Background:
A member of the RNA family "FMN riboswitch aptamer (RFN element)" from Eubacterium sp. CAG:603, 137 nucleotides long. It scores 104 bits against the family's covariance model. For this family Rfam cites "Regulation of riboflavin biosynthesis and transport genes in bacteria by transcriptional and translational attenuation" (Vitreschak et al., Nucleic Acids Res, 2002). The organism belongs to Eubacterium, within Bacteria. About the family: The RFN element is a highly conserved domain that is found frequently in the 5'-untranslated regions of prokaryotic mRNAs that encode for flavin mononucleotide (FMN) biosynthesis and transport proteins.
[Rfam]
RNA sequence: UGAAGUCUUCAGGGCAUGGUGAGAUUCCAUACCGGCGGUAAAGCCCGCGAGCUGAUACAUUUAUGUAGAAGCAUGAUUCGGUGAGACAAUUGUUAAUUCCGAAGCCGACAGUAAAGUCUGGAUGAGAGAAGAACUUA
Numbered sequence: 001u002g003a004a005g006u007c008u009u010c011a012g013g014g015c016a017u018g019g020u021g022a023g024a025u026u027c028c029a030u031a032c033c034g035g036c037g038g039u040a041a042a043g044c045c046c047g048c049g050a051g052c053u054g055a056u057a058c059a060u061u062u063a064u065g066u067a068g069a070a071g072c073a074u075g076a077u078u079c080g081g082u083g084a085g086a087c088a089a090u091u092g093u094u095a096a097u098u099c100c101g102a103a104g105c106c107g108a109c110a111g112u113a114a115a116g117u118c119u120g121g122a123u124g125a126g127a128g129a130a131g132a133a134c135u136u137a
Base pairs, nucleotide, nucleotide: 003135006132007131008130009129010128017029018028019027031117032116033107034106035048036047037046038045043105044104051072052071053070077103078102079101080100081099109120110119111118